About this RNA: Rfam assigns this 117-nucleotide RNA from Trichogramma brassicae to the family "Potassium channel RNA editing signal". The source organism's lineage runs through Eukaryota, Bilateria, Hexapoda, Endopterygota and Trichogramma. A search with the family's covariance model found it, with a score of 62 bits.
[Rfam]
RNA sequence: AUAUGUGAUUUUUUUUAUAACAGUCCAGUUGGAGUAUGGGGUAAAAUCGUUGGCUCAUUGUGUGCUAUUGCUGGAGUUUUGACAAUCGCCUUACCAGUCCCUGUAAUUGUCUCAAAU
Number, nucleotide and partner (000 for none) at each position: 001a117002u116003a000004u114005g113006u000007g111008a110009u109010u000011u000012u000013u000014u000015u000016u105017a104018u103019a102020a000021c000022a000023g098024u097025c000026c000027a000028g000029u000030u000031g000032g000033a000034g000035u000036a000037u000038g000039g000040g080041g079042u000043a077044a000045a000046a000047u000048c000049g000050u000051u000052g066053g065054c064055u000056c000057a000058u000059u000060g000061u000062g000063u000064g054065c053066u052067a000068u000069u000070g000071c000072u000073g000074g000075a000076g000077u043078u000079u041080u040081g000082a000083c000084a000085a000086u000087c000088g000089c000090c000091u000092u000093a000094c000095c000096a000097g024098u023099c000100c000101c000102u019103g018104u017105a016106a000107u000108u000109g009110u008111c007112u000113c005114a004115a000116a002117u001